Overview
A member of the RNA family "Pyrrolysine insertion sequence mttB" from an Olavius algarvensis Delta 1 endosymbiont, 100 nucleotides long. Gene Ontology term of the family: pyrrolysine incorporation. Pairs were carried over by alignment from the consensus structure, which was predicted with CMfinder. Rfam classes the family as a cis-regulatory element. It scores 79 bits against the family's covariance model. NCBI's taxonomy places the organism under Bacteria, delta/epsilon subdivisions, Deltaproteobacteria.

RNA sequence: UAGGGUGACUCCAAAUUAAGUGAUGCUCAGUCCGGUCACGAAAAAACCCUCACAGGCUUGCUACCGGCGUUGGCAGGUGCCAACCUGAUUUACGGCCUGG
Numbered sequence: 001u002a003g004g005g006u007g008a009c010u011c012c013a014a015a016u017u018a019a020g021u022g023a024u025g026c027u028c029a030g031u032c033c034g035g036u037c038a039c040g041a042a043a044a045a046a047c048c049c050u051c052a053c054a055g056g057c058u059u060g061c062u063a064c065c066g067g068c069g070u071u072g073g074c075a076g077g078u079g080c081c082a083a084c085c086u087g088a089u090u091u092a093c094g095g096c097c098u099g100g
Stems, first nucleotide, its partner, number of pairs: 003012001025032001034061001077098001079096002
Dot-bracket structure: ..(........)............(......).(..........................)...............(.((..............)).)..